Rfam assigns this 252-nucleotide RNA from Nannizzia gypsea to the family "Small nucleolar RNA snR191".
Taxonomically the source falls in Nannizzia gypsea (Eukaryota, Eurotiomycetes, Onygenales, Nannizzia).
On this family, see Badis et al., RNA 2003: "A snoRNA that guides the two most conserved pseudouridine modifications within rRNA confers a growth advantage in yeast".
Its Rfam clan is "SNORA74 clan".
RNA sequence: UGCCAUCGCGUUUGUCAAGGCUGCUUCCAGUGCAUAUUAGUUGCCGCUUUUUACAAUGGAAGACGGUCUGUUACCGCUAUGGCAGAUCAAUCCCCCCCGUAACUUUGGCUUCUUUCUGAAGUCGAGGUUGACUUGCUCUCGUUUUGAAGGCAUUGUCGCAAAGGGCAUGGUGUGACGUGUUUUUGAGUUGAGUCCUGCUUCCACUUUGUUGUGGACAAGAUAGCUGUGCUCUUAGUAACAUUUCAUAUAUCU
Numbered sequence: 001u002g003c004c005a006u007c008g009c010g011u012u013u014g015u016c017a018a019g020g021c022u023g024c025u026u027c028c029a030g031u032g033c034a035u036a037u038u039a040g041u042u043g044c045c046g047c048u049u050u051u052u053a054c055a056a057u058g059g060a061a062g063a064c065g066g067u068c069u070g071u072u073a074c075c076g077c078u079a080u081g082g083c084a085g086a087u088c089a090a091u092c093c094c095c096c097c098c099g100u101a102a103c104u105u106u107g108g109c110u111u112c113u114u115u116c117u118g119a120a121g122u123c124g125a126g127g128u129u130g131a132c133u134u135g136c137u138c139u140c141g142u143u144u145u146g147a148a149g150g151c152a153u154u155g156u157c158g159c160a161a162a163g164g165g166c167a168u169g170g171u172g173u174g175a176c177g178u179g180u181u182u183u184u185g186a187g188u189u190g191a192g193u194c195c196u197g198c199u200u201c202c203a204c205u206u207u208g209u210u211g212u213g214g215a216c217a218a219g220a221u222a223g224c225u226g227u228g229c230u231c232u233u234a235g236u237a238a239c240a241u242u243u244c245a246u247a248u249a250u251c252u
Base pairs, nucleotide, nucleotide: 003082004081005080006079018069019068020067021066022065024062025061026060027059028058032044033040093170094169096165097164098163101129102128103127104126105125106124107123108122109121110120111119112118130157131156132155135151136150137149139147140146141145172246173245174244175243177241178240179239180238190231191230192229193228197224198223199222200215201214202213203209